[Rfam]
RNA sequence: AUCGGUGCUCUGCUGUGAGAACUGAAUUCCAUAGAUGGUGGCAUGUGAAGGGGUCAUCUAUGGGCUCAGUUCUUUUGGCUUGGUACUGGUUU
Numbered sequence: 001a002u003c004g005g006u007g008c009u010c011u012g013c014u015g016u017g018a019g020a021a022c023u024g025a026a027u028u029c030c031a032u033a034g035a036u037g038g039u040g041g042c043a044u045g046u047g048a049a050g051g052g053g054u055c056a057u058c059u060a061u062g063g064g065c066u067c068a069g070u071u072c073u074u075u076u077g078g079c080u081u082g083g084u085a086c087u088g089g090u091u092u
Stems, first nucleotide, its partner, number of pairs: 008083002012079002018073008033059004
Dot-bracket structure: .......((..((....((((((((.......((((...................))))......))))))))....))..)).........
RNA: mir-146 microRNA precursor family
Organism: Cyprinodon variegatus